[Rfam]
RNA sequence: ACGUGUGUGAAGGAGUGGUUUAUCUGAAACAGUGGAAACAAGGAAACACUUUAUUUAGUUAAACCAUAAU
Numbered sequence: 001a002c003g004u005g006u007g008u009g010a011a012g013g014a015g016u017g018g019u020u021u022a023u024c025u026g027a028a029a030c031a032g033u034g035g036a037a038a039c040a041a042g043g044a045a046a047c048a049c050u051u052u053a054u055u056u057a058g059u060u061a062a063a064c065c066a067u068a069a070u
Stems, first nucleotide, its partner, number of pairs: 016066006024058002028052002032049003

The family of this 70-nucleotide RNA is "Cyano-1 RNA". It is annotated as a small RNA. Rfam's curators put it in the seed alignment.